The family of this 70-nucleotide RNA sequence from Dibothriocephalus latus is "mir-71 microRNA precursor family". Rfam links the family to the GO terms RISC complex and miRNA-mediated post-transcriptional gene silencing. The base pairs follow the family's consensus structure, which was predicted with RNAalifold.
RNA sequence: UUUUCAUGAAAGACGAUGGUAGUGAGAUGAUGAAUACCUAUCCUCUCGCUGCUCCGUCUUUUCCUGAAUC
Numbered sequence: 001u002u003u004u005c006a007u008g009a010a011a012g013a014c015g016a017u018g019g020u021a022g023u024g025a026g027a028u029g030a031u032g033a034a035u036a037c038c039u040a041u042c043c044u045c046u047c048g049c050u051g052c053u054c055c056g057u058c059u060u061u062u063c064c065u066g067a068a069u070c
Stems, first nucleotide, its partner, number of pairs: 008062008018053002021050007029042001